[Rfam]
RNA: Group II catalytic intron D1-D4-2
RNA sequence: GGGGGUGGGCCCCUCGGAGCCGGCUUACAAGAGCAGGCUUCAAACAACCAUAAGCUGCAACUAGCUCGCGCUAAGGUAGCAACGGUAAUGGGCAAGGAGCGAAUAUGCGUCAUG
Numbered sequence: 001g002g003g004g005g006u007g008g009g010c011c012c013c014u015c016g017g018a019g020c021c022g023g024c025u026u027a028c029a030a031g032a033g034c035a036g037g038c039u040u041c042a043a044a045c046a047a048c049c050a051u052a053a054g055c056u057g058c059a060a061c062u063a064g065c066u067c068g069c070g071c072u073a074a075g076g077u078a079g080c081a082a083c084g085g086u087a088a089u090g091g092g093c094a095a096g097g098a099g100c101g102a103a104u105a106u107g108c109g110u111c112a113u114g
Base pairs, nucleotide, nucleotide: 001015002014003013004012005011016041017040018039019038020037021036023034024033025032026031045114046113048091049090050089051088053086054080055079057077058076062073063072064071065070096111097110099108100107101106